A member of the RNA family "Prion pseudoknot" from Rostratula benghalensis, 42 nucleotides long. Gene Ontology term of the family: translation. A reference for the family is Barrette et al. (2001), "Pseudoknots in prion protein mRNAs confirmed by comparative sequence analysis and pattern searching", Nucleic Acids Res. The match comes from Rfam's covariance-model search (39 bits). From the family's description: This family represents a predicted pseudoknot structure found in prion protein mRNA. It has been suggested that the family has a possible effect in prion protein translation. The family has 148 seed sequences and 421 matches in Rfam 15.1. Lineage of the source: Eukaryota > Metazoa > Eumetazoa > Tetrapoda > Rostratula. The family's consensus secondary structure is taken from published work.
RNA sequence: CCAUGGUGGUGGCACCUUGGGGACAUCCCCAUGGUGGUGGGG
Numbered sequence: 001c002c003a004u005g006g007u008g009g010u011g012g013c014a015c016c017u018u019g020g021g022g023a024c025a026u027c028c029c030c031a032u033g034g035u036g037g038u039g040g041g042g
Stems, first nucleotide, its partner, number of pairs: 001034006